Record summary: The family of this 130-nucleotide RNA from Pleurocapsa sp. PCC 7327 is "c-di-AMP riboswitch aptamer (ydaO/yuaA leader)". The organism belongs to Pleurocapsa, within Bacteria.
RNA sequence: UGCAAAAAGUUACUUGAAAGAUCGAGCAGGAACGGGGGAACCAAACCUGGGGCGAACCUUAGAAGGUCAAGGGGGACAUCUCUCAGUCCUAGCCCGUCAGCUAACCUCGUCGGCAUUGAGAGGAGAUUGA
Numbered sequence: 001u002g003c004a005a006a007a008a009g010u011u012a013c014u015u016g017a018a019a020g021a022u023c024g025a026g027c028a029g030g031a032a033c034g035g036g037g038g039a040a041c042c043a044a045a046c047c048u049g050g051g052g053c054g055a056a057c058c059u060u061a062g063a064a065g066g067u068c069a070a071g072g073g074g075g076a077c078a079u080c081u082c083u084c085a086g087u088c089c090u091a092g093c094c095c096g097u098c099a100g101c102u103a104a105c106c107u108c109g110u111c112g113g114c115a116u117u118g119a120g121a122g123g124a125g126a127u128u129g130a
Stems, first nucleotide, its partner, number of pairs: 001031001003029001032110006042049002050095003058071003074089004